[Rfam]
The record is an 87-nucleotide RNA sequence from Miscanthus lutarioriparius, which matches "Small nucleolar RNA snoR27" in Rfam. The family's RNA type in Rfam is C/D-box small nucleolar RNA. The family is grouped with related families in Rfam's "snR68 clan". Rfam links the family to the GO terms nucleolus and RNA processing. A search with the family's covariance model found it, with a score of 56 bits. The source organism's lineage runs through Eukaryota, Streptophytina, Euphyllophyta, commelinids and Miscanthus. The base pairs follow the family's consensus structure, which was predicted with WAR. The family has 6 seed sequences and 649 matches in Rfam 15.1.
RNA sequence: UCUGGAUCGAUGAUGCUACUUUUAUCUGCGUUAUCUUUCUGCAACCUUUUAAGGUGCUGAAGAAUACAUUACUUGCUGAGAUCCAUG
Numbered sequence: 001u002c003u004g005g006a007u008c009g010a011u012g013a014u015g016c017u018a019c020u021u022u023u024a025u026c027u028g029c030g031u032u033a034u035c036u037u038u039c040u041g042c043a044a045c046c047u048u049u050u051a052a053g054g055u056g057c058u059g060a061a062g063a064a065u066a067c068a069u070u071a072c073u074u075g076c077u078g079a080g081a082u083c084c085a086u087g
Base pairs, nucleotide, nucleotide: 001087003085004084005083006082007081